[Rfam]
RNA sequence: ACAUUGGGGCUGUAAGGUAGUGCUUCGCGCACGGGCUUUCCUGUUU
Numbered sequence: 001a002c003a004u005u006g007g008g009g010c011u012g013u014a015a016g017g018u019a020g021u022g023c024u025u026c027g028c029g030c031a032c033g034g035g036c037u038u039u040c041c042u043g044u045u046u
Stems, first nucleotide, its partner, number of pairs: 008037004020032004
This 46-nucleotide sequence belongs to the Rfam family "ssnA RNA". Rfam's curators put it in the seed alignment.